[Rfam]
RNA sequence: CCUGUGAACUGUCAGAUCAAACUGUAGUAGCGAGUAAGUGGCGAGGCAGGGCUGGUUGAAACAGGAA
Numbered sequence: 001c002c003u004g005u006g007a008a009c010u011g012u013c014a015g016a017u018c019a020a021a022c023u024g025u026a027g028u029a030g031c032g033a034g035u036a037a038g039u040g041g042c043g044a045g046g047c048a049g050g051g052c053u054g055g056u057u058g059a060a061a062c063a064g065g066a067a
Stems, first nucleotide, its partner, number of pairs: 001065005009054001011052003022049003030042002
Dot-bracket structure: (((((...(.(((........(((.....((.........))....)))))).)......)))))..
A member of the RNA family "RAGATH-18 RNA" from Paenactinomyces guangxiensis, 67 nucleotides long. By type it is a small RNA. Rfam describes the family as follows. Actinobacteria, Firmicutes, Fusobacteria, Thermotogae (1 example). The family's consensus secondary structure is taken from published work. A search with the family's covariance model found it, with a score of 51 bits.